[Rfam]
Shown here is a 54-nucleotide RNA from Conger conger, a member of the family "UnaL2 LINE 3' element". Pairs were carried over by alignment from the consensus structure, which is taken from published work. It is annotated as a cis-regulatory element. Gene Ontology term of the family: transposition, RNA-mediated.

RNA sequence: UCCUGCUUAGUCUGUACGUCGCUCUGGAUAAGAGCGUCUGCCAAAUGCCAUUAA
Numbered sequence: 001u002c003c004u005g006c007u008u009a010g011u012c013u014g015u016a017c018g019u020c021g022c023u024c025u026g027g028a029u030a031a032g033a034g035c036g037u038c039u040g041c042c043a044a045a046u047g048c049c050a051u052u053a054a
Stems, first nucleotide, its partner, number of pairs: 013043001014041003020036006